The record is a 147-nucleotide RNA from Leucobacter sp. cx-328, which matches "FMN riboswitch aptamer (RFN element)" in Rfam. Taxonomically the source falls in Leucobacter (Bacteria, Bacillati, Actinomycetes, Micrococcales). The RFN element is a highly conserved domain that is found frequently in the 5'-untranslated regions of prokaryotic mRNAs that encode for flavin mononucleotide (FMN) biosynthesis and transport proteins.
[Rfam]
RNA sequence: AGCGUGUUCCGGGGUUGGUGAGAUUCCAAACCGGCGGUGAAAGUCCGCGAGCACUCGCAUCCUGCGGGUGUUGAACCGGUGAAAUUCCGGUGCCGACGGUAGUAGUUCGUAAGUGUGCGGGCUUAGUCCGGAUGAGAGGAACGCAGC
Number, nucleotide and partner (000 for none) at each position: 001a000002g000003c000004g144005u143006g142007u141008u140009c139010c138011g000012g000013g000014g000015u000016u028017g027018g026019u000020g000021a000022g000023a000024u000025u000026c018027c017028a016029a000030a000031c000032c095033g094034g048035c047036g046037g045038u000039g000040a000041a000042a000043g093044u092045c037046c036047g035048c034049g000050a000051g071052c070053a069054c000055u000056c000057g000058c000059a000060u000061c000062c000063u000064g000065c000066g000067g000068g000069u053070g052071u051072u000073g000074a000075a091076c090077c089078g088079g087080u000081g000082a000083a000084a000085u000086u000087c079088c078089g077090g076091u075092g044093c043094c033095g032096a000097c130098g129099g128100u000101a000102g000103u000104a000105g000106u000107u000108c000109g000110u000111a000112a000113g000114u000115g000116u000117g000118c000119g000120g000121g000122c000123u000124u000125a000126g000127u000128c099129c098130g097131g000132a000133u000134g000135a000136g000137a000138g010139g009140a008141a007142c006143g005144c004145a000146g000147c000